Rfam assigns this 168-nucleotide RNA from Anaeromicrobium sediminis to the family "glmS glucosamine-6-phosphate activated ribozyme aptamer". By type it is a riboswitch. The family's consensus secondary structure is taken from published work.
[Rfam]
RNA sequence: AAAAUUAAUAAAGCGCCAGAGCUUAAAUAUGAGCGGAAAAAAUAUUUGAGUUGACGAGGUCAGGGUUUAUCGAAGAAUUCGGCGGAUGCCCUGCGGUAUAUCACUACCGUUAAAGAUUUUACAAACCUUUUAAGCAAUUAGAAGAACAAAGAAAAUCGGGUGACUAAA
Numbered sequence: 001a002a003a004a005u006u007a008a009u010a011a012a013g014c015g016c017c018a019g020a021g022c023u024u025a026a027a028u029a030u031g032a033g034c035g036g037a038a039a040a041a042a043u044a045u046u047u048g049a050g051u052u053g054a055c056g057a058g059g060u061c062a063g064g065g066u067u068u069a070u071c072g073a074a075g076a077a078u079u080c081g082g083c084g085g086a087u088g089c090c091c092u093g094c095g096g097u098a099u100a101u102c103a104c105u106a107c108c109g110u111u112a113a114a115g116a117u118u119u120u121a122c123a124a125a126c127c128u129u130u131u132a133a134g135c136a137a138u139u140a141g142a143a144g145a146a147c148a149a150a151g152a153a154a155a156u157c158g159g160g161u162g163a164c165u166a167a168a
Stems, first nucleotide, its partner, number of pairs: 020052008029043001061093005070082004094109005115157006127144007